Rfam assigns this 47-nucleotide RNA sequence from Gadus morhua to the family "Histone 3' UTR stem-loop". It is annotated as a cis-regulatory element. Pairs were carried over by alignment from the consensus structure, which is taken from published work. It scores 36 bits against the family's covariance model. The source organism's lineage runs through Eukaryota, Gnathostomata, Osteoglossocephalai, Gadariae and Gadus. The mRNAs of metazoan histone genes lack a poly-A tail. 3' end processing occurs at a site between a highly conserved stem-loop (modelled by this family) and a purine rich region around 20 nts downstream (the histone downstream element, or HDE). The stem-loop is bound by a 31 kDa stem-loop binding protein (SLBP - also termed the histone hairpin binding protein, or HBP). Together with U7 snRNA binding of the HDE, SLBP binding nucleate s the formation of the processing complex. The histone 3' UTR stem-loop is also involved in nucleocytoplasmic transport of the mRNA, and in stability regulation and translation efficiency in the cytoplasm. Its family is annotated with mRNA 3'-end processing by stem-loop binding and cleavage in the Gene Ontology.
[Rfam]
RNA sequence: CCAAAGGCUCUUUUAAGAGCCACCUAAAUACUUGCUGAAGAAUUACU
Numbered sequence: 001c002c003a004a005a006g007g008c009u010c011u012u013u014u015a016a017g018a019g020c021c022a023c024c025u026a027a028a029u030a031c032u033u034g035c036u037g038a039a040g041a042a043u044u045a046c047u
Stems, first nucleotide, its partner, number of pairs: 006021006